[Rfam]
RNA: RNase MRP
RNA sequence: AGACCAAUGGACGAUGUGAUUGGGCUAAUGAAUCUACUAAGUGGGUUUGGGCUCAGGAAAGUCCCCGGGCCGCUACGCAGAGAUGCGGACUCGGAAACGAGUUAAGGCUUGUAGCAAGUCCAGGCUGAGACACGUGUGGAGCUAUCGGAUUUGCUCGAGCUGAAUUUGGCCGAACUAAAACAGUCAUUCACAUGGUCACUUAUGUGACUAACUGAACGGGGCUUAUGAUCCAUUGGUC
Number, nucleotide and partner (000 for none) at each position: 001a000002g238003a237004c236005c235006a234007a233008u232009g231010g230011a229012c000013g000014a193015u192016g191017u190018g189019a188020u000021u000022g054023g053024g052025c051026u000027a000028a000029u000030g000031a000032a000033u000034c000035u000036a000037c000038u000039a000040a000041g000042u000043g000044g000045g000046u000047u000048u000049g000050g000051g025052c024053u023054c022055a000056g000057g000058a000059a224060a223061g222062u000063c221064c220065c219066c218067g000068g000069g000070c000071c000072g000073c000074u000075a000076c087077g086078c085079a084080g000081a000082g000083a000084u079085g078086c077087g076088g103089a102090c101091u100092c099093g098094g000095a000096a000097a000098c093099g092100a091101g090102u089103u088104a000105a161106g160107g000108c000109u000110u000111g000112u000113a155114g154115c153116a152117a151118g150119u149120c148121c147122a000123g143124g142125c141126u000127g000128a000129g000130a000131c000132a137133c000134g000135u000136g000137u132138g000139g000140a000141g125142c124143u123144a000145u000146c000147g121148g120149a119150u118151u117152u116153g115154c114155u113156c000157g000158a000159g000160c106161u105162g000163a000164a000165u000166u000167u000168g000169g000170c000171c000172g000173a000174a000175c000176u000177a000178a000179a000180a000181c000182a000183g000184u000185c000186a000187u000188u019189c018190a017191c016192a015193u014194g000195g208196u207197c206198a205199c204200u000201u000202a000203u000204g199205u198206g197207a196208c195209u000210a000211a000212c000213u000214g000215a000216a000217c000218g066219g065220g064221g063222c061223u060224u059225a000226u000227g000228a000229u011230c010231c009232a008233u007234u006235g005236g004237u003238c002